MIR2275 microRNA precursor family: a 103-nucleotide RNA from Prunus avium.
Its family is annotated with miRNA-mediated post-transcriptional gene silencing and RISC complex in the Gene Ontology.
[Rfam]
RNA sequence: AAGCCGUAAGUGAGAGUUGGAGGAAACUAAACAAAUUAACCUCUCAAUCACAAUGAGAAAUUCUUAAUUUGUUUAGUUUCCUCCAAUAUCUCAUUUCCGAUAU
Numbered sequence: 001a002a003g004c005c006g007u008a009a010g011u012g013a014g015a016g017u018u019g020g021a022g023g024a025a026a027c028u029a030a031a032c033a034a035a036u037u038a039a040c041c042u043c044u045c046a047a048u049c050a051c052a053a054u055g056a057g058a059a060a061u062u063c064u065u066a067a068u069u070u071g072u073u074u075a076g077u078u079u080c081c082u083c084c085a086a087u088a089u090c091u092c093a094u095u096u097c098c099g100a101u102a103u
Stems, first nucleotide, its partner, number of pairs: 005099002008096001011093004016087006023080008032071006